[Rfam]
RNA sequence: CCACUCAGCCAAACAAACAACUAUCUACUUCCGGUUUAAUACCAACCCAUCACAGAACAUCACCAUGUCUCCCUGCACCUGCAACUGCUGCUCUGGCGAGUGCAACUCCUGCGCUUGCAGCAGCUGCACCGUACGUUGCCCAUUCCU
Numbered sequence: 001c002c003a004c005u006c007a008g009c010c011a012a013a014c015a016a017a018c019a020a021c022u023a024u025c026u027a028c029u030u031c032c033g034g035u036u037u038a039a040u041a042c043c044a045a046c047c048c049a050u051c052a053c054a055g056a057a058c059a060u061c062a063c064c065a066u067g068u069c070u071c072c073c074u075g076c077a078c079c080u081g082c083a084a085c086u087g088c089u090g091c092u093c094u095g096g097c098g099a100g101u102g103c104a105a106c107u108c109c110u111g112c113g114c115u116u117g118c119a120g121c122a123g124c125u126g127c128a129c130c131g132u133a134c135g136u137u138g139c140c141c142a143u144u145c146c147u
Base pairs, nucleotide, nucleotide: 074098075097076096081091082090083089102127103126104125111118112117
RNA: A. fumigatus sRNA Afu_254